[Rfam]
RNA sequence: AAACCUUAGUCGCUUAAUCAUUAUGAGCGGGGGAACCACUUUGAUGGAUAAAAUCCAUCUUGGGGUGAAUCUUACUUAGUAAGAGGGGAUACUCUCAGUCCCUAAUCCGACAGCUAACCUCGUCAGCGUUUUUUGGAGAGAAG
Numbered sequence: 001a002a003a004c005c006u007u008a009g010u011c012g013c014u015u016a017a018u019c020a021u022u023a024u025g026a027g028c029g030g031g032g033g034a035a036c037c038a039c040u041u042u043g044a045u046g047g048a049u050a051a052a053a054u055c056c057a058u059c060u061u062g063g064g065g066u067g068a069a070u071c072u073u074a075c076u077u078a079g080u081a082a083g084a085g086g087g088g089a090u091a092c093u094c095u096c097a098g099u100c101c102c103u104a105a106u107c108c109g110a111c112a113g114c115u116a117a118c119c120u121c122g123u124c125a126g127c128g129u130u131u132u133u134u135g136g137a138g139a140g141a142a143g
Stems, first nucleotide, its partner, number of pairs: 011128004018026003027123006037062002063108003071083004086102004

The record is a 143-nucleotide RNA sequence from Halalkalibacter krulwichiae, which matches "c-di-AMP riboswitch aptamer (ydaO/yuaA leader)" in Rfam.
Taxonomically the source falls in Halalkalibacter (Bacteria, Bacillati, Bacilli, Bacillaceae).
Pairs were carried over by alignment from the consensus structure.
The match comes from Rfam's covariance-model search (92 bits).